[Rfam]
RNA sequence: AAAACAAAAUUGCCUAAUUCCCGCUAGGGAAACGGGGGAACCACUUUGGGUGAAUUGAUCUUGACGCACGGCACACCGGGCGCCUGAGAGAUCAUAGGGAACCUUCAACCGAACCCCACAGCUAACCUCGUCGGCACCGGAAGGAGCUUCA
Numbered sequence: 001a002a003a004a005c006a007a008a009a010u011u012g013c014c015u016a017a018u019u020c021c022c023g024c025u026a027g028g029g030a031a032a033c034g035g036g037g038g039a040a041c042c043a044c045u046u047u048g049g050g051u052g053a054a055u056u057g058a059u060c061u062u063g064a065c066g067c068a069c070g071g072c073a074c075a076c077c078g079g080g081c082g083c084c085u086g087a088g089a090g091a092u093c094a095u096a097g098g099g100a101a102c103c104u105u106c107a108a109c110c111g112a113a114c115c116c117c118a119c120a121g122c123u124a125a126c127c128u129c130g131u132c133g134g135c136a137c138c139g140g141a142a143g144g145a146g147c148u149u150c151a
Base pairs, nucleotide, nucleotide: 011136012135013134014133018031019030020029032131033130034129035128036127037126048116049115050114056094057093058092059091060090061089062088097110098109

The family of this 151-nucleotide sequence from Paenibacillus paeoniae is "c-di-AMP riboswitch aptamer (ydaO/yuaA leader)". Lineage of the source: Bacteria > Bacillati > Bacillota > Caryophanales > Paenibacillus. This family represents a conserved RNA structure found upstream of the ydaO and yuaA genes in Bacillus subtilis and related genes in other bacteria.